The family of this 87-nucleotide RNA sequence from Solanum tuberosum is "MIR8024 microRNA precursor family".
Rfam 15.1 lists 661 matches to the family in 8 species.
It scores 67 bits against the family's covariance model.
Taxonomically the source falls in Solanum (Eukaryota, eudicotyledons, lamiids, Solanoideae).
Nucleotides: 087
Base pairs, nucleotide, nucleotide: 001085002084004082006080009077010076011075012074013073014072017068018067020065021064025059026058027057028056032053033052035050037048
Number, partner (000 for none) and nucleotide at each position: 001085u002084u003000a004082a005000a006080g007000a008000a009077u010076u011075u012074g013073a014072a015000g016000a017068c018067u019000u020065c021064a022000a023000c024000u025059u026058g027057c028056a029000g030000a031000c032053u033052u034000g035050a036000a037048g038000a039000a040000u041000u042000u043000g044000a045000a046000g047000a048037c049000c050035u051000g052033a053032a054000c055000u056028u057027g058026c059025a060000g061000a062000c063000u064021u065020g066000c067018a068017g069000g070000a071000a072014u073013u074012u075011g076010a077009a078000g079000a080006u081000a082004u083000c084002a085001a086000c087000u